[Rfam]
RNA: Plastid-atpF group II-D1 intron
RNA sequence: AAUAAUUUUAUUGAUAUAGAACACUCAUAUCAAUAAAAUUAUUUGAACUACUU
Numbered sequence: 001a002a003u004a005a006u007u008u009u010a011u012u013g014a015u016a017u018a019g020a021a022c023a024c025u026c027a028u029a030u031c032a033a034u035a036a037a038a039u040u041a042u043u044u045g046a047a048c049u050a051c052u053u
Stems, first nucleotide, its partner, number of pairs: 011033007